[Rfam]
RNA sequence: UCUUAUCAGUUUAAUAUCUGAUACGUGGGCCAUUGGCCCACAUGAUAUUAAAUUUAUUUUUUGAGGGGGGUUCAUCACAGUAGCUUGCUACUGGGGCUCUUGAGCGUCGCCUGUGCGUUGCACUAUAGUUUGGGUCUGGCGCACCCCAA
Numbered sequence: 001u002c003u004u005a006u007c008a009g010u011u012u013a014a015u016a017u018c019u020g021a022u023a024c025g026u027g028g029g030c031c032a033u034u035g036g037c038c039c040a041c042a043u044g045a046u047a048u049u050a051a052a053u054u055u056a057u058u059u060u061u062u063g064a065g066g067g068g069g070g071u072u073c074a075u076c077a078c079a080g081u082a083g084c085u086u087g088c089u090a091c092u093g094g095g096g097c098u099c100u101u102g103a104g105c106g107u108c109g110c111c112u113g114u115g116c117g118u119u120g121c122a123c124u125a126u127a128g129u130u131u132g133g134g135u136c137u138g139g140c141g142c143a144c145c146c147c148a149a
Stems, first nucleotide, its partner, number of pairs: 004023006025041007066101008080091004104142006111133003115129002
Shown here is a 149-nucleotide sequence from Gossypium davidsonii, a member of the family "U2 spliceosomal RNA".
On this family, see Zwieb, Nucleic Acids Res 1997: "The uRNA database".
Taxonomically the source falls in Gossypium (Eukaryota, Streptophytina, Embryophyta, eudicotyledons).
Rfam's curators write: U2 is a small nuclear RNA (snRNA) component of the spliceosome (involved in pre-mRNA splicing). Complementary binding between U2 snRNA (in an area lying towards the 5' end but 3' to hairpin I) and the branchpoint sequence (BPS) of the intron results the bulging out of an unpaired adenosine, on the BPS, which initiates a nucleophilic attack at the intronic 5' splice site, thus starting the first of two transesterification reactions that mediate splicing.
The base pairs follow the family's consensus structure, which is taken from published work.